[Rfam]
RNA sequence: AUAACUGAGAGAGUAGAGGCAAAUCUACUCUCCUGCGCGGUCAAAGUCUUGGGAGGAUGCGAUCCUGGCGCGGUAACUCGCAGCCGCCGGAUCACCGGAAAUCGGAUCGGACGCGUUUAACUGCAAGGCCUUGUGCCUUGCAUUUUUUU
Numbered sequence: 001a002u003a004a005c006u007g008a009g010a011g012a013g014u015a016g017a018g019g020c021a022a023a024u025c026u027a028c029u030c031u032c033c034u035g036c037g038c039g040g041u042c043a044a045a046g047u048c049u050u051g052g053g054a055g056g057a058u059g060c061g062a063u064c065c066u067g068g069c070g071c072g073g074u075a076a077c078u079c080g081c082a083g084c085c086g087c088c089g090g091a092u093c094a095c096c097g098g099a100a101a102u103c104g105g106a107u108c109g110g111a112c113g114c115g116u117u118u119a120a121c122u123g124c125a126a127g128g129c130c131u132u133g134u135g136c137c138u139u140g141c142a143u144u145u146u147u148u149u
Stems, first nucleotide, its partner, number of pairs: 003149002011030006036115004046058004061108005067085003070081003087098003122142008
RNA: Alphaproteobacterial sRNA ar9
Organism: Neomesorhizobium albiziae